[Rfam]
RNA sequence: UUACAGGAAUAGGGGAGCGUUUUGCUGAGAGGAAUUAAUAUUCGACCCUUUAGCUGAUCCGGAUAAUACCGGCGUAGUGAAUUCUAUCCACUCAUUC
Numbered sequence: 001u002u003a004c005a006g007g008a009a010u011a012g013g014g015g016a017g018c019g020u021u022u023u024g025c026u027g028a029g030a031g032g033a034a035u036u037a038a039u040a041u042u043c044g045a046c047c048c049u050u051u052a053g054c055u056g057a058u059c060c061g062g063a064u065a066a067u068a069c070c071g072g073c074g075u076a077g078u079g080a081a082u083u084c085u086a087u088c089c090a091c092u093c094a095u096u097c
Stems, first nucleotide, its partner, number of pairs: 006085005011049004017025003032043004053078004059072004
Notes: Shown here is a 97-nucleotide sequence from Peptoniphilus sp. oral taxon 386, a member of the family "TPP riboswitch aptamer (THI element)". It scores 59 bits against the family's covariance model. Vitamin B(1) in its active form thiamin pyrophosphate (TPP) is an essential coenzyme that is synthesised by coupling of pyrimidine and thiazole moieties in bacteria. Its family is annotated with thiamine pyrophosphate binding in the Gene Ontology. The base pairs follow the family's consensus structure, which is taken from published work.